Acido-Lenti-1 RNA: a 45-nucleotide RNA from Taibaiella lutea. The match comes from Rfam's covariance-model search (39 bits). The family has 87 seed sequences and 2,607 matches in Rfam 15.1. The source organism's lineage runs through Bacteria, Bacteroidota, Chitinophagia, Chitinophagales and Taibaiella. By type it is a small RNA.

RNA sequence: GAUAGGGUUUUACCCUAUCCUGUUUUAUGUCGUCCUUUCAGGACU
Numbered sequence: 001g002a003u004a005g006g007g008u009u010u011u012a013c014c015c016u017a018u019c020c021u022g023u024u025u026u027a028u029g030u031c032g033u034c035c036u037u038u039c040a041g042g043a044c045u
Base pairs, nucleotide, nucleotide: 001019002018003017004016005015006014007013008012032044033043034042035041036040